[Rfam]
Nucleotides: 092
Stems, first nucleotide, its partner, number of pairs: 003090004008086001012082001014080001016078001018076007027068006035062004040052005
Number, partner (000 for none) and nucleotide at each position: 001000a002000g003090g004089a005088g006087g007000c008086g009000g010000u011000c012082g013000a014080g015000g016078g017000a018076a019075u020074c021073u022072g023071g024070g025000g026000a027068g028067g029066u030065g031064c032063a033000c034000a035062a036061g037060g038059u039000u040052u041051g042050u043049g044048u045000c046000c047000a048044g049043c050042a051041c052040a053000c054000u055000c056000c057000a058000c059038a060037c061036c062035u063032u064031g065030c066029g067028c068027u069000a070024c071023u072022c073021a074020g075019g076018u077000c078016c079000g080014c081000g082012c083000a084000u085000g086008c087006c088005u089004u090003c091000a092000u
The family of this 92-nucleotide RNA from Balaenoptera physalus is "mir-3200 microRNA precursor family". It scores 81 bits against the family's covariance model. The organism belongs to Balaenoptera, within Eukaryota. Rfam links the family to the GO terms miRNA-mediated post-transcriptional gene silencing and RISC complex.